[Rfam]
SAM riboswitch aptamer (S box leader): a 116-nucleotide RNA sequence from Butyrivibrio sp. XB500-5. A search with the family's covariance model found it, with a score of 76 bits.

Nucleotides: 116
Stems, first nucleotide, its partner, number of pairs: 001116008013044005021033003027080001030077001045072004050068002052064004081105004
Number, partner (000 for none) and nucleotide at each position: 001116c002115u003114c004113u005112u006111a007110u008109u009000c010000a011000g012000a013044g014043u015042g016041g017040u018000g019000g020000a021033g022032g023031u024000a025000c026000a027080u028000a029000g030077g031023a032022c033021c034000u035000a036000u037000g038000a039000a040017g041016c042015c043014a044013c045072g046071g047070c048069a049000a050068c051067c052064c053063c054062u055061c056000g057000a058000u059000a060000u061055g062054a063053g064052g065000a066000a067051g068050g069048u070047g071046c072045c073000a074000a075000c076000c077030u078000g079000a080027g081105c082104g083103u084102g085000c086000a087000a088000u089000u090000c091000c092000g093000a094000u095000u096000a097000c098000g099000g100000a101000c102084u103083a104082c105081g106000a107000g108000c109008a110007a111006u112005a113004a114003g115002a116001g